[Rfam]
RNA sequence: UCACCUCCGGACCCUUAUCAUUCCCCUGACCAGUGUUUGUGGUAUUACUGCUGGACGGAGAACUGAUAAGGGCCCGUAGCGUU
Numbered sequence: 001u002c003a004c005c006u007c008c009g010g011a012c013c014c015u016u017a018u019c020a021u022u023c024c025c026c027u028g029a030c031c032a033g034u035g036u037u038u039g040u041g042g043u044a045u046u047a048c049u050g051c052u053g054g055a056c057g058g059a060g061a062a063c064u065g066a067u068a069a070g071g072g073c074c075c076g077u078a079g080c081g082u083u
Base pairs, nucleotide, nucleotide: 012072013071014070015069016068017067018066019065020064021062022061023060025058026057030054031053
The family of this 83-nucleotide sequence from Nesidiocoris tenuis is "mir-184 microRNA precursor family". Its family is annotated with RISC complex and gene silencing by miRNA in the Gene Ontology. A search with the family's covariance model found it, with a score of 64 bits. NCBI's taxonomy places the organism under Eukaryota, Panarthropoda, Prosorrhyncha, Cimicoidea, Nesidiocoris.